[Rfam]
RNA sequence: GCCGAUCCUUGGCUGGGAUAUGAGCAAACGUGUACACGAUACUUAUUCCCUGUACCCGUAUUCUCAUAUCUGAGCCAAGGAUCGUC
Numbered sequence: 001g002c003c004g005a006u007c008c009u010u011g012g013c014u015g016g017g018a019u020a021u022g023a024g025c026a027a028a029c030g031u032g033u034a035c036a037c038g039a040u041a042c043u044u045a046u047u048c049c050c051u052g053u054a055c056c057c058g059u060a061u062u063c064u065c066a067u068a069u070c071u072g073a074g075c076c077a078a079g080g081a082u083c084g085u086c
Base pairs, nucleotide, nucleotide: 003084004083005082006081007080008079009078010077011076012075013074014073016071017070018069019068020067021066022065023064024063029058030057032055033054034053035052036051

A member of the RNA family "mir-54 microRNA precursor family" from Caenorhabditis briggsae, 86 nucleotides long. The base pairs follow the family's consensus structure, which was predicted with RNAalifold. Rfam links the family to the GO terms RISC complex and miRNA-mediated post-transcriptional gene silencing. Rfam 15.1 lists 13 matches to the family in 7 species. Rfam's curators put it in the seed alignment. Lineage of the source: Eukaryota > Protostomia > Rhabditina > Rhabditoidea > Caenorhabditis.